Rfam assigns this 100-nucleotide sequence from Clostridium aciditolerans to the family "SAM riboswitch aptamer (S box leader)".

[Rfam]
RNA sequence: CUCUUAUCAAGAGAGGUGGAGGGAAAGGGCCCGAUGAAACCCGGCAACCGGCUUAUAGCUAAGGUGCCAAUUCCUGCAGUAUGAGUCUGCGAGAUAAGAG
Dot-bracket structure: ((((((((....(.(((...(((...[[[)))......))))((((.((((((...))))..))))))...(]]].(((.......)))..)))))))))
Numbered sequence: 001c002u003c004u005u006a007u008c009a010a011g012a013g014a015g016g017u018g019g020a021g022g023g024a025a026a027g028g029g030c031c032c033g034a035u036g037a038a039a040c041c042c043g044g045c046a047a048c049c050g051g052c053u054u055a056u057a058g059c060u061a062a063g064g065u066g067c068c069a070a071u072u073c074c075u076g077c078a079g080u081a082u083g084a085g086u087c088u089g090c091g092a093g094a095u096a097a098g099a100g
Stems, first nucleotide, its partner, number of pairs: 001100008013042001015041003021032003027075003043068004048064002050060004072092001077089003

Its family is annotated with regulation of gene expression in the Gene Ontology.